[Rfam]
RNA: Small nucleolar RNA SNORA53
Nucleotides: 239
Stems, first nucleotide, its partner, number of pairs: 002146007011134005019128008027098006038090004045084003049081001052078004058072001061070003099115006160234005167227001169225004179217008190209003194205001
Number, partner (000 for none) and nucleotide at each position: 001000a002146a003145c004144a005143u006142g007141c008140u009000u010000c011134c012133u013132u014131a015130g016000a017000u018000c019128c020127a021126c022125c023124u024123u025122u026121g027098u028097g029096g030095a031094u032093g033000c034000c035000a036000a037000c038090u039089c040088u041087u042000g043000u044000u045084c046083u047082g048000a049081g050000u051000u052078c053077u054076a055075c056000u057000u058072g059000c060000u061070a062069a063068c064000g065000u066000u067000u068063g069062u070061u071000u072058c073000u074000u075055g076054u077053a078052g079000u080000u081049c082047c083046a084045g085000u086000c087041a088040a089039g090038a091000g092000g093032c094031a095030u096029c097028c098027a099115g100114c101113a102112a103111c104110u105000u106000u107000a108000c109000c110104g111103g112102u113101u114100g115099u116000a117000c118000u119000g120000u121026c122025a123024a124023a125022g126021g127020u128019g129000c130015u131014u132013g133012a134011g135000u136000c137000a138000u139000u140008g141007g142006c143005a144004u145003g146002u147000g148000a149000g150000a151000u152000g153000a154000a155000u156000a157000u158000a159000c160234c161233u162232g163231c164230a165000u166000a167227u168000u169225a170224g171223u172222c173000a174000u175000g176000c177000g178000u179217u180216c181215u182214g183213a184212u185211a186210g187000a188000a189000a190209u191208g192207g193000c194205a195000g196000u197000g198000u199000g200000u201000c202000g203000u204000u205194u206000c207192u208191u209190a210186c211185u212184a213183u214182c215181a216180g217179g218000a219000c220000u221000u222172g223171a224170u225169u226000g227167g228000u229000a230164u231163g232162c233161g234160g235000a236000c237000a238000g239000a